[Rfam]
RNA sequence: AUGGGCGUCUUACCAGACAUGGUUAGAUCUAAUAACUCGUGUCUAAUACUGUCUGGUAAUGCCGUCCGU
Numbered sequence: 001a002u003g004g005g006c007g008u009c010u011u012a013c014c015a016g017a018c019a020u021g022g023u024u025a026g027a028u029c030u031a032a033u034a035a036c037u038c039g040u041g042u043c044u045a046a047u048a049c050u051g052u053c054u055g056g057u058a059a060u061g062c063c064g065u066c067c068g069u
Stems, first nucleotide, its partner, number of pairs: 002068006009061001010059010022047006

Record summary:
A member of the RNA family "mir-8/mir-141/mir-200 microRNA precursor family" from Triplophysa tibetana, 69 nucleotides long. Lineage of the source: Eukaryota > Gnathostomata > Euteleostomi > Cypriniformes > Triplophysa. A search with the family's covariance model found it, with a score of 64 bits. Clan: mir-8 microRNA precursor clan.